This 82-nucleotide RNA sequence from Carlito syrichta belongs to the Rfam family "Small nucleolar RNA SNORD115".
[Rfam]
RNA sequence: GGGUCAAUAAAGAAAUCUUUGCCUUGUCUCUAGAGAGGUGUUGUCUUAAAAGUCUUGUGCAAUAGUGUUACGUUGAAGACCU
Numbered sequence: 001g002g003g004u005c006a007a008u009a010a011a012g013a014a015a016u017c018u019u020u021g022c023c024u025u026g027u028c029u030c031u032a033g034a035g036a037g038g039u040g041u042u043g044u045c046u047u048a049a050a051a052g053u054c055u056u057g058u059g060c061a062a063u064a065g066u067g068u069u070a071c072g073u074u075g076a077a078g079a080c081c082u
Base pairs, nucleotide, nucleotide: 001082002081003080004079005075006074008072
The organism belongs to Carlito, within Eukaryota. The family's consensus secondary structure was predicted with PFOLD.